tRNA: a 72-nucleotide sequence from Piscibacillus halophilus. By type it is a transfer RNA. The family's consensus secondary structure is taken from published work. The source organism's lineage runs through Bacteria, Bacillati, Bacilli, Caryophanales and Piscibacillus.

RNA sequence: UGGGCCAUAGCCAAGCGGUAAGGCAACGGGUUUUGGUCUCGUGAUGCCCAGGUUCGAAUCCUGGUGGCCCAG
Numbered sequence: 001u002g003g004g005c006c007a008u009a010g011c012c013a014a015g016c017g018g019u020a021a022g023g024c025a026a027c028g029g030g031u032u033u034u035g036g037u038c039u040c041g042u043g044a045u046g047c048c049c050a051g052g053u054u055c056g057a058a059u060c061c062u063g064g065u066g067g068c069c070c071a072g
Base pairs, nucleotide, nucleotide: 001071002070003069004068005067006066007065010024011023012022026042027041028040029039030038048064049063050062051061052060